Rfam assigns this 360-nucleotide sequence from [Clostridium] symbiosum to the family "Bacterial RNase P class A". Rfam classes the family as a ribozyme.
[Rfam]
RNA sequence: UGAGUAAGACAAAUGGCCGCGGCUGCAGGACCGAAAGGCUGCAGGUGAGGAAAGUCCGGGCUUCACAGGGCAGGAUGCCAGAUAACGUCUGGUGGAGGCGACUCCAAGGACAGUGCAACAGAAAUAUACCGCCGGACAGGCACUUUGUGCCUGUCGGUAAGGGUGGAAGGGCAGUGUAAGAGACUACCGCCUGGCUGGUAACAGACAGGGCACAUGUAAACCCCAUCCGAAGCAAGACCGAACAGGAGGCAUAAGGCGGCCCGUCUGCCUCCGGGUAGGUCGCUUGAUUUUGCCGGCGACGGCAAAGCUAGAUAGAUGGCCAUUCAACGACAUAACCCGGCUUAUCGUCUUGCUCAAAAC
Numbered sequence: 001u002g003a004g005u006a007a008g009a010c011a012a013a014u015g016g017c018c019g020c021g022g023c024u025g026c027a028g029g030a031c032c033g034a035a036a037g038g039c040u041g042c043a044g045g046u047g048a049g050g051a052a053a054g055u056c057c058g059g060g061c062u063u064c065a066c067a068g069g070g071c072a073g074g075a076u077g078c079c080a081g082a083u084a085a086c087g088u089c090u091g092g093u094g095g096a097g098g099c100g101a102c103u104c105c106a107a108g109g110a111c112a113g114u115g116c117a118a119c120a121g122a123a124a125u126a127u128a129c130c131g132c133c134g135g136a137c138a139g140g141c142a143c144u145u146u147g148u149g150c151c152u153g154u155c156g157g158u159a160a161g162g163g164u165g166g167a168a169g170g171g172c173a174g175u176g177u178a179a180g181a182g183a184c185u186a187c188c189g190c191c192u193g194g195c196u197g198g199u200a201a202c203a204g205a206c207a208g209g210g211c212a213c214a215u216g217u218a219a220a221c222c223c224c225a226u227c228c229g230a231a232g233c234a235a236g237a238c239c240g241a242a243c244a245g246g247a248g249g250c251a252u253a254a255g256g257c258g259g260c261c262c263g264u265c266u267g268c269c270u271c272c273g274g275g276u277a278g279g280u281c282g283c284u285u286g287a288u289u290u291u292g293c294c295g296g297c298g299a300c301g302g303c304a305a306a307g308c309u310a311g312a313u314a315g316a317u318g319g320c321c322a323u324u325c326a327a328c329g330a331c332a333u334a335a336c337c338c339g340g341c342u343u344a345u346c347g348u349c350u351u352g353c354u355c356a357a358a359a360c
Base pairs, nucleotide, nucleotide: 001356002355003354004353005352006351007350008349009348010347011345012324013323014322015321016320017319018318020047021046023044024043025042026041027040028039052343053342054341056340057339058338059337060336061232062231063230064229068262069261070260071259073228074227075226076225077224078092079091080090081089082088093107094105095104096103097102108223109222113221114220115217116216117215129162130161131158132157133156135155136154137153138152139151140150141149142148170188171187173185174184175183189211190209191208192207193206195204196203197202236281237280238279239278245272246271247270248269249268250267254266255265256264257263288307289306290305291304292303293302294301295300